[Rfam]
RNA sequence: GUGGAAGCUCCAUCUAUAAAUGGAUAAUACCUUUGUAUAUGAAUAUAUGAAUUUUUGAACAUAGAAAGCAAUCCCCCAAUAUCUUGUUCUAAGAACAAGAUAUUGGGGGAUUGCUU
Numbered sequence: 001g002u003g004g005a006a007g008c009u010c011c012a013u014c015u016a017u018a019a020a021u022g023g024a025u026a027a028u029a030c031c032u033u034u035g036u037a038u039a040u041g042a043a044u045a046u047a048u049g050a051a052u053u054u055u056u057g058a059a060c061a062u063a064g065a066a067a068g069c070a071a072u073c074c075c076c077c078a079a080u081a082u083c084u085u086g087u088u089c090u091a092a093g094a095a096c097a098a099g100a101u102a103u104u105g106g107g108g109g110a111u112u113g114c115u116u
Stems, first nucleotide, its partner, number of pairs: 009024005066116009076106002079103001081101005
RNA: Plastid-psbA-1 3UTR RNA